[Rfam]
RNA sequence: UCCUGUCUCGCGAAAAGUGCCGACUGUGGCUGCCUGCCCUCCAUCUAUAAGGGAUGGAAGGGAUAGCGAGGCAGGUUAUU
Numbered sequence: 001u002c003c004u005g006u007c008u009c010g011c012g013a014a015a016a017g018u019g020c021c022g023a024c025u026g027u028g029g030c031u032g033c034c035u036g037c038c039c040u041c042c043a044u045c046u047a048u049a050a051g052g053g054a055u056g057g058a059a060g061g062g063a064u065a066g067c068g069a070g071g072c073a074g075g076u077u078a079u080u
Stems, first nucleotide, its partner, number of pairs: 002075010017033002019030003037062004
Record summary:
A member of the RNA family "DUF3800-IX RNA", 80 nucleotides long. It is annotated as a small RNA. Rfam's curators put it in the seed alignment.